mir-5014 microRNA precursor family: a 120-nucleotide RNA from Arabidopsis thaliana.
Gene Ontology terms of the family: miRNA-mediated post-transcriptional gene silencing and RISC complex.
[Rfam]
RNA sequence: UUUGAUUCGUACACUUAGAUUGUACAUCACUUUUAGUGUACAAAUGUAAAGUGUACGCUGUAUAUUUUUAUAUAUAUUUGUACACUAAAAGUGGUGUACAAUCUAAAUGUACGAAUCAAA
Numbered sequence: 001u002u003u004g005a006u007u008c009g010u011a012c013a014c015u016u017a018g019a020u021u022g023u024a025c026a027u028c029a030c031u032u033u034u035a036g037u038g039u040a041c042a043a044a045u046g047u048a049a050a051g052u053g054u055a056c057g058c059u060g061u062a063u064a065u066u067u068u069u070a071u072a073u074a075u076a077u078u079u080g081u082a083c084a085c086u087a088a089a090a091g092u093g094g095u096g097u098a099c100a101a102u103c104u105a106a107a108u109g110u111a112c113g114a115a116u117c118a119a120a
Base pairs, nucleotide, nucleotide: 001120002119003118004117005116006115007114008113009112010111011110012109013108015106016105017104018103019102020101021100022099023098024097025096026095027094028093029092030091031090032089033088034087035086036085037084038083039082040081041080042079043078044077045076049069050068053065054064055063